Shown here is a 391-nucleotide RNA from Stutzerimonas stutzeri, a member of the family "Pseudomonas sRNA CrcZ". Rfam 15.1 lists 127 matches to the family in 96 species. Gene Ontology term of the family: carbon catabolite repression of transcription. Rfam's curators put it in the seed alignment.
RNA sequence: ACAACAACAAUAACAAGCAGAUCCCACAAUAAGAACAAGACGUAACGGCUCCAGCAAAACAACGACAAGAAGGCGGAGGCGCAGCUAACUGAUUCUUUUGGAGAGGACAUGCCACGGGGUUCGCCCCACGACCAGGCCGAGAACAACAAAAACUGCAUCGAGCAGGCCCUGCACUGGUUGGAUCGAAGAUCAAGGCAACGUCAGCGACCAAAGAAAUCCGUUUGCUAUUGGCUCCCACUGUGGGAGCGUUCCCGACGGCCACGGCCCGAAGGACAGGCGAACAACAAGAACAGCAACGCCUGAGAAGACCAAUAACAAUAAAUAAGCACGCGACAUUAUUCAGAGGGGAGCUUCGGCUCCCCUCAGUGCUAUCUGGCUCCGCGGUUUCCUU
Numbered sequence: 001a002c003a004a005c006a007a008c009a010a011u012a013a014c015a016a017g018c019a020g021a022u023c024c025c026a027c028a029a030u031a032a033g034a035a036c037a038a039g040a041c042g043u044a045a046c047g048g049c050u051c052c053a054g055c056a057a058a059a060c061a062a063c064g065a066c067a068a069g070a071a072g073g074c075g076g077a078g079g080c081g082c083a084g085c086u087a088a089c090u091g092a093u094u095c096u097u098u099u100g101g102a103g104a105g106g107a108c109a110u111g112c113c114a115c116g117g118g119g120u121u122c123g124c125c126c127c128a129c130g131a132c133c134a135g136g137c138c139g140a141g142a143a144c145a146a147c148a149a150a151a152a153c154u155g156c157a158u159c160g161a162g163c164a165g166g167c168c169c170u171g172c173a174c175u176g177g178u179u180g181g182a183u184c185g186a187a188g189a190u191c192a193a194g195g196c197a198a199c200g201u202c203a204g205c206g207a208c209c210a211a212a213g214a215a216a217u218c219c220g221u222u223u224g225c226u227a228u229u230g231g232c233u234c235c236c237a238c239u240g241u242g243g244g245a246g247c248g249u250u251c252c253c254g255a256c257g258g259c260c261a262c263g264g265c266c267c268g269a270a271g272g273a274c275a276g277g278c279g280a281a282c283a284a285c286a287a288g289a290a291c292a293g294c295a296a297c298g299c300c301u302g303a304g305a306a307g308a309c310c311a312a313u314a315a316c317a318a319u320a321a322a323u324a325a326g327c328a329c330g331c332g333a334c335a336u337u338a339u340u341c342a343g344a345g346g347g348g349a350g351c352u353u354c355g356g357c358u359c360c361c362c363u364c365a366g367u368g369c370u371a372u373c374u375g376g377c378u379c380c381g382c383g384g385u386u387u388c389c390u391u
Base pairs, nucleotide, nucleotide: 046081047080049078050077051076052075096213097212098211099210100209110206111205112204129180130179131178132177133176134175135174153165154164155163156162231247232246233245234244235243271378272377274375275374276300277299278298279297326369327368328367329366343364344363345362346361347360348359349358350357351356